[Rfam]
RNA: L31-Corynebacteriaceae ribosomal protein leader
RNA sequence: ACUCGGGCACGAUCCCCGCCGCCUAGGCCUGCUUUUUAGGCACCGGCGAUAGUGGGGAACCGACCCGAAGUUUCAACCCUGAGGGA
Numbered sequence: 001a002c003u004c005g006g007g008c009a010c011g012a013u014c015c016c017c018g019c020c021g022c023c024u025a026g027g028c029c030u031g032c033u034u035u036u037u038a039g040g041c042a043c044c045g046g047c048g049a050u051a052g053u054g055g056g057g058a059a060c061c062g063a064c065c066c067g068a069a070g071u072u073u074c075a076a077c078c079c080u081g082a083g084g085g086a
Stems, first nucleotide, its partner, number of pairs: 001071003004067004013058007021047003